c-di-AMP riboswitch aptamer (ydaO/yuaA leader): a 193-nucleotide sequence from Orenia metallireducens. This family represents a conserved RNA structure found upstream of the ydaO and yuaA genes in Bacillus subtilis and related genes in other bacteria. The ydaO/yuaA element is thought to act as a genetic 'off' switch for the ydaO and yuaA genes in its native state. It is believed that the element may be triggered during osmotic shock leading to activation of ydaO, a predicted amino acid transporter gene, and members of the yuaA-yubG operon which code for KtrA and KtrB K+ transporters.
RNA sequence: AAUUGCAAAGUGCCUAAUCUGCAAAGAGCGGGGGAACCAUUUUUGGGGUGAAUCUAAUAGCAAAUUUAAGUAUGAGGUUAAGUAGAUGUUAGAUAUUUACUUAUAUUUAUUCUUAAUCUUAAAUUUUAUAUUAGUAGGGUAUCCUCUACCCGAAUCCGACAGCUAACCUCGUAGGCAUGUGAAAAGAGGGACA
Numbered sequence: 001a002a003u004u005g006c007a008a009a010g011u012g013c014c015u016a017a018u019c020u021g022c023a024a025a026g027a028g029c030g031g032g033g034g035a036a037c038c039a040u041u042u043u044u045g046g047g048g049u050g051a052a053u054c055u056a057a058u059a060g061c062a063a064a065u066u067u068a069a070g071u072a073u074g075a076g077g078u079u080a081a082g083u084a085g086a087u088g089u090u091a092g093a094u095a096u097u098u099a100c101u102u103a104u105a106u107u108u109a110u111u112c113u114u115a116a117u118c119u120u121a122a123a124u125u126u127u128a129u130a131u132u133a134g135u136a137g138g139g140u141a142u143c144c145u146c147u148a149c150c151c152g153a154a155u156c157c158g159a160c161a162g163c164u165a166a167c168c169u170c171g172u173a174g175g176c177a178u179g180u181g182a183a184a185a186g187a188g189g190g191a192c193a
Stems, first nucleotide, its partner, number of pairs: 011177004018027003028172006038045002046157003054134006137151004
Lineage of the source: Bacteria > Bacillati > Bacillota > Halanaerobiales > Orenia. A search with the family's covariance model found it, with a score of 94 bits.